[Rfam]
RNA sequence: CUUCCUCAGCCUUACUCCAGGGGCUUUCUUGACCAUAGAGUGCCCUGGCAUUGUCUGAGGAAAUAUCAGAAAGCACAUUUCCCUCCCCAAUAAGAGCUGGGUUUUCUUUUGGGGCCUACAGUUGGUGCUGACAUU
Number, nucleotide and partner (000 for none) at each position: 001c000002u000003u061004c060005c059006u058007c057008a056009g055010c000011c053012u000013u000014a000015c000016u000017c048018c047019a046020g045021g044022g043023g041024c040025u039026u038027u037028c000029u000030u000031g000032a000033c000034c000035a000036u000037a027038g026039a025040g024041u023042g000043c022044c021045c020046u019047g018048g017049c000050a000051u000052u000053g011054u000055c009056u008057g007058a006059g005060g004061a003062a000063a000064u000065a000066u000067c000068a000069g000070a000071a000072a129073g128074c127075a000076c125077a000078u000079u000080u000081c000082c000083c000084u000085c114086c113087c112088c111089a110090a109091u000092a108093a107094g106095a105096g000097c000098u000099g000100g000101g000102u000103u000104u000105u095106c094107u093108u092109u090110u089111g088112g087113g086114g085115c000116c000117u000118a000119c000120a000121g000122u000123u000124g000125g076126u000127g074128c073129u072130g000131a000132c000133a000134u000135u000
Small nucleolar RNA SNORA49: a 135-nucleotide RNA from Sarcophilus harrisii. From the family's description: The snoRNA ACA49 has no identified RNA target. NB genomic sequence 1-nt different from published. Rfam links the family to the GO terms nucleolus and RNA processing. NCBI's taxonomy places the organism under Eukaryota, Teleostomi, Dipnotetrapodomorpha, Tetrapoda, Sarcophilus.